[Rfam]
RNA: FMN riboswitch aptamer (RFN element)
RNA sequence: AAAAAUCUUCAGGGCAGGGUGUGAGUCCCUACCGGUGGUAUAGUCCACGAGCGUUAGCAUGAAUCGGUGAAAUUCCGAUACCGACAGUAAAGUCUGGAUGAAAGAAGAUAUAA
Number, nucleotide and partner (000 for none) at each position: 001a000002a000003a111004a000005a109006u108007c107008u106009u105010c104011a000012g000013g000014g000015c000016a000017g029018g028019g027020u000021g000022u000023g000024a000025g000026u000027c019028c018029c017030u000031a093032c092033c083034g082035g048036u047037g046038g045039u000040a000041u000042a000043g081044u080045c038046c037047a036048c035049g000050a000051g000052c000053g000054u000055u000056a000057g000058c000059a000060u000061g000062a000063a079064u078065c077066g076067g075068u000069g000070a000071a000072a000073u000074u000075c067076c066077g065078a064079u063080a044081c043082c034083g033084a000085c096086a095087g094088u000089a000090a000091a000092g032093u031094c087095u086096g085097g000098a000099u000100g000101a000102a000103a000104g010105a009106a008107g007108a006109u005110a000111u003112a000113a000